[Rfam]
RNA sequence: AAAUCGUAUAGAGGUAGCGGUGCAUCAGAGUAUUAUCUGGAGUCGGCAGACAGUGAAAGAUAGGAAAGGUAAUCAUCGCCGAAAGCUAGCAUUGGCAGAUGCCUAGCUUGGGGUUGCAGGGAAUACCUGUAACACUCCUUCAGAAAUGAAGAGGAGCUAUUAAUCAA
Numbered sequence: 001a002a003a004u005c006g007u008a009u010a011g012a013g014g015u016a017g018c019g020g021u022g023c024a025u026c027a028g029a030g031u032a033u034u035a036u037c038u039g040g041a042g043u044c045g046g047c048a049g050a051c052a053g054u055g056a057a058a059g060a061u062a063g064g065a066a067a068g069g070u071a072a073u074c075a076u077c078g079c080c081g082a083a084a085g086c087u088a089g090c091a092u093u094g095g096c097a098g099a100u101g102c103c104u105a106g107c108u109u110g111g112g113g114u115u116g117c118a119g120g121g122a123a124u125a126c127c128u129g130u131a132a133c134a135c136u137c138c139u140u141c142a143g144a145a146a147u148g149a150a151g152a153g154g155a156g157c158u159a160u161u162a163a164u165c166a167a
Stems, first nucleotide, its partner, number of pairs: 008160004017079006025071001033063006083109006089102005110136002113133008138151005
Background: Rfam assigns this 167-nucleotide RNA sequence from Turicibacter sp. H121 to the family "Lysine riboswitch aptamer". The match comes from Rfam's covariance-model search (70 bits). The source organism's lineage runs through Bacteria, Bacillota, Erysipelotrichales, Turicibacteraceae and Turicibacter. Its family is annotated with lysine biosynthetic process in the Gene Ontology. The family's consensus secondary structure is taken from published work.